[Rfam]
RNA sequence: CCGACAGGGUGCAACCCCCUCCUCCUCCCGGGGUGCACCAAACCAAGGCCGCGGCUCUCUCCUCCUCCCUGAGCCAGCGGUAGAAGAAGCGGCGGCGCCCCUCCUCCUCCCGGGCGCCGCCGUUUUC
Numbered sequence: 001c002c003g004a005c006a007g008g009g010u011g012c013a014a015c016c017c018c019c020u021c022c023u024c025c026u027c028c029c030g031g032g033g034u035g036c037a038c039c040a041a042a043c044c045a046a047g048g049c050c051g052c053g054g055c056u057c058u059c060u061c062c063u064c065c066u067c068c069c070u071g072a073g074c075c076a077g078c079g080g081u082a083g084a085a086g087a088a089g090c091g092g093c094g095g096c097g098c099c100c101c102u103c104c105u106c107c108u109c110c111c112g113g114g115c116g117c118c119g120c121c122g123u124u125u126u127c
Stems, first nucleotide, its partner, number of pairs: 008039002011036003015032003048081005053075005090122011
The record is a 127-nucleotide RNA sequence from Pseudothioclava arenosa, which matches "Alphaproteobacterial ar14" in Rfam. It is annotated as a small RNA. Pairs were carried over by alignment from the consensus structure.